[Rfam]
RNA sequence: CCCUCGUCCGACAAAUCGCCAUCGAAGCUCACAAACGGAGAUUCUCCUUUCGGGGGGAGUCUCAAAUUCAUAAAGCUUUGGGAGAAAGUCCCCGGACACACGUUACUUCUCUUUACCGGGAAGCCAAAACGCCGCGGAAACGCGCCGCCAUAGAAGCACAGCGGCUGACCUCCAAGACCUGCGUCCGGACACAAUGUGCUUUUUCACACCCCACCCCGUCGCUACAUCGUCGGUCUUCUCUGCUCUUUCGAGACCCUGCUUUCGCUCUCCAGGACCUUUUGGAUGAAGAUAUGAGUCCGCGCCUGGGGGUUUUUGGGAGUUUGGGACCUUGGAGUGUUGGGGGAGCCUUUGAUGACGGGGUGGCCGUUGGAGAGGGCUUCGCUUGCCGGGCGAAUUCAAGGGUUGGUCGGAGGGUCUUUCGUCGAGAUCGAUAGGUAUGCGAUUGCCCGCCCAUAACCUCUUUACUGAGGUUUGGGUGUGUUACUCGAUGGGGCUUAUUCUUGGUGCGAGG
Numbered sequence: 001c002c003c004u005c006g007u008c009c010g011a012c013a014a015a016u017c018g019c020c021a022u023c024g025a026a027g028c029u030c031a032c033a034a035a036c037g038g039a040g041a042u043u044c045u046c047c048u049u050u051c052g053g054g055g056g057g058a059g060u061c062u063c064a065a066a067u068u069c070a071u072a073a074a075g076c077u078u079u080g081g082g083a084g085a086a087a088g089u090c091c092c093c094g095g096a097c098a099c100a101c102g103u104u105a106c107u108u109c110u111c112u113u114u115a116c117c118g119g120g121a122a123g124c125c126a127a128a129a130c131g132c133c134g135c136g137g138a139a140a141c142g143c144g145c146c147g148c149c150a151u152a153g154a155a156g157c158a159c160a161g162c163g164g165c166u167g168a169c170c171u172c173c174a175a176g177a178c179c180u181g182c183g184u185c186c187g188g189a190c191a192c193a194a195u196g197u198g199c200u201u202u203u204u205c206a207c208a209c210c211c212c213a214c215c216c217c218g219u220c221g222c223u224a225c226a227u228c229g230u231c232g233g234u235c236u237u238c239u240c241u242g243c244u245c246u247u248u249c250g251a252g253a254c255c256c257u258g259c260u261u262u263c264g265c266u267c268u269c270c271a272g273g274a275c276c277u278u279u280u281g282g283a284u285g286a287a288g289a290u291a292u293g294a295g296u297c298c299g300c301g302c303c304u305g306g307g308g309g310u311u312u313u314u315g316g317g318a319g320u321u322u323g324g325g326a327c328c329u330u331g332g333a334g335u336g337u338u339g340g341g342g343g344a345g346c347c348u349u350u351g352a353u354g355a356c357g358g359g360g361u362g363g364c365c366g367u368u369g370g371a372g373a374g375g376g377c378u379u380c381g382c383u384u385g386c387c388g389g390g391c392g393a394a395u396u397c398a399a400g401g402g403u404u405g406g407u408c409g410g411a412g413g414g415u416c417u418u419u420c421g422u423c424g425a426g427a428u429c430g431a432u433a434g435g436u437a438u439g440c441g442a443u444u445g446c447c448c449g450c451c452c453a454u455a456a457c458c459u460c461u462u463u464a465c466u467g468a469g470g471u472u473u474g475g476g477u478g479u480g481u482u483a484c485u486c487g488a489u490g491g492g493g494c495u496u497a498u499u500c501u502u503g504g505u506g507c508g509a510g511g
Stems, first nucleotide, its partner, number of pairs: 002511006008504004014444006022082001023080006038063011086496003090493004133144003252416003259412002262410003269406004281397004380390001382388001446480001448478006

Rfam assigns this 511-nucleotide sequence from Colletotrichum fioriniae to the family "RNase MRP". It scores 104 bits against the family's covariance model. It is annotated as a ribozyme. The organism belongs to Colletotrichum fioriniae, within Eukaryota.